[Rfam]
RNA sequence: CACUGAGAAAAGCAAAACCACUGAAAGGUGGAGACGCAAAACCAAGGGCCUAAAGUAGCAAUACAAUGGCAGCCGGUUGCCGCA
Numbered sequence: 001c002a003c004u005g006a007g008a009a010a011a012g013c014a015a016a017a018c019c020a021c022u023g024a025a026a027g028g029u030g031g032a033g034a035c036g037c038a039a040a041a042c043c044a045a046g047g048g049c050c051u052a053a054a055g056u057a058g059c060a061a062u063a064c065a066a067u068g069g070c071a072g073c074c075g076g077u078u079g080c081c082g083c084a
Base pairs, nucleotide, nucleotide: 012037013036018031019030020029021028022027040078041077042076043075046074047073048070049069050068055064056063057062

Source information:
This 84-nucleotide RNA from Anoxynatronum buryatiense belongs to the Rfam family "c-di-GMP-I riboswitch aptamer". The base pairs follow the family's consensus structure, which is taken from published work. NCBI's taxonomy places the organism under Bacteria, Bacillota, Eubacteriales, Clostridiaceae, Anoxynatronum. It scores 72 bits against the family's covariance model.